The family of this 84-nucleotide RNA from Enhydrobacter aerosaccus is "Pseudomonas sRNA P9". A reference for the family is Livny et al. (2006), "Identification of 17 Pseudomonas aeruginosa sRNAs and prediction of sRNA-encoding genes in 10 diverse pathogens using the bioinformatic tool sRNAPredict2", Nucleic Acids Res. It is annotated as a non-coding RNA gene. It scores 48 bits against the family's covariance model. This small RNA (sRNA) was computationally identified in the genome of the opportunistic pathogen Pseudomonas aeruginosa and its expression verified by northern blot analysis. P9 appears to be conserved in several Pseudomonas species in addition to Bordetella spp. In both Pseudomonas and Bordetella spp P9 appears to be located upstream of a predicted threonine dehydratase gene. P9 has a predicted Rho independent terminator at the 3' end but the function of P9 is unknown. This sRNA also appears to be present in the Betaproteobacteria (Burkholderia and Ralstonia species).

RNA sequence: GUCGUUAUUCUCGCCAUCCAGCCGGUGGUGGGUUAGCGCGCGUCCGAACGGUCCCGAAGCAACCCGCCCCGAGAGGCGGGUUUU
Numbered sequence: 001g002u003c004g005u006u007a008u009u010c011u012c013g014c015c016a017u018c019c020a021g022c023c024g025g026u027g028g029u030g031g032g033u034u035a036g037c038g039c040g041c042g043u044c045c046g047a048a049c050g051g052u053c054c055c056g057a058a059g060c061a062a063c064c065c066g067c068c069c070c071g072a073g074a075g076g077c078g079g080g081u082u083u084u
Stems, first nucleotide, its partner, number of pairs: 011031007061082008